RNA sequence: UGGGGUAUCGACAAGUGGCUAAGUCAGCAGAUUUUGAUUCUGCCAUUCGAAGGUUCGAGUCCUUCUACCCCAG
Numbered sequence: 001u002g003g004g005g006u007a008u009c010g011a012c013a014a015g016u017g018g019c020u021a022a023g024u025c026a027g028c029a030g031a032u033u034u035u036g037a038u039u040c041u042g043c044c045a046u047u048c049g050a051a052g053g054u055u056c057g058a059g060u061c062c063u064u065c066u067a068c069c070c071c072a073g
Stems, first nucleotide, its partner, number of pairs: 001072007010025003027043005049065005
Record summary: The family of this 73-nucleotide RNA from Halobacteriovorax sp. DA5 is "tRNA". NCBI's taxonomy places the organism under Bacteria, Pseudomonadati, Bacteriovoracia, Bacteriovoracales, Halobacteriovorax. The family's consensus secondary structure is taken from published work. Transfer RNA (tRNA) molecules are approximately 80 nucleotides in length.